[Rfam]
RNA sequence: AGAGCCCUGAGAUGUACGUGGGUUUCCGAAAGUUUUGAGCCAACACCAUUAUAGCGGGAGCUUGCGUCACGGAUGAGCGCAGAUGCCCUAUGGGACCUGUUAACAUUAGUGCAGAGCACCCACCUGCGAGAGCAGGUUCGAAACUGAGGAGGCCACGACAUAUAUGGGGCUCUU
Numbered sequence: 001a002g003a004g005c006c007c008u009g010a011g012a013u014g015u016a017c018g019u020g021g022g023u024u025u026c027c028g029a030a031a032g033u034u035u036u037g038a039g040c041c042a043a044c045a046c047c048a049u050u051a052u053a054g055c056g057g058g059a060g061c062u063u064g065c066g067u068c069a070c071g072g073a074u075g076a077g078c079g080c081a082g083a084u085g086c087c088c089u090a091u092g093g094g095a096c097c098u099g100u101u102a103a104c105a106u107u108a109g110u111g112c113a114g115a116g117c118a119c120c121c122a123c124c125u126g127c128g129a130g131a132g133c134a135g136g137u138u139c140g141a142a143a144c145u146g147a148g149g150a151g152g153c154c155a156c157g158a159c160a161u162a163u164a165u166g167g168g169g170c171u172c173u174u
Stems, first nucleotide, its partner, number of pairs: 002172008011163001012161004017157003032144010056121003060117004067111001069110002072107004081098002086094002
RNA: 6S / SsrS RNA
Organism: Marininema mesophilum